Rfam assigns this 127-nucleotide RNA from Clupea harengus to the family "Small nucleolar RNA SNORD22". Gene Ontology terms of the family: RNA processing and nucleolus. On this family, see Tycowski et al., Nature 1996: "A mammalian gene with introns instead of exons generating stable RNA products".
RNA sequence: UCAUUAUGAUGAAGCUCGCACAAGUCUUACACCCAGUCAACUCCAGAACCUGAAAAGGUGAACCCACUGGAGUUGCCUGGGUAAGCAAGGAGAUGACUUGUUGGGGUUACCAACUGUCUGAUAUGAC
Numbered sequence: 001u002c003a004u005u006a007u008g009a010u011g012a013a014g015c016u017c018g019c020a021c022a023a024g025u026c027u028u029a030c031a032c033c034c035a036g037u038c039a040a041c042u043c044c045a046g047a048a049c050c051u052g053a054a055a056a057g058g059u060g061a062a063c064c065c066a067c068u069g070g071a072g073u074u075g076c077c078u079g080g081g082u083a084a085g086c087a088a089g090g091a092g093a094u095g096a097c098u099u100g101u102u103g104g105g106g107u108u109a110c111c112a113a114c115u116g117u118c119u120g121a122u123a124u125g126a127c
Base pairs, nucleotide, nucleotide: 001126002125003124004123
Dot-bracket structure: ((((......................................................................................................................)))).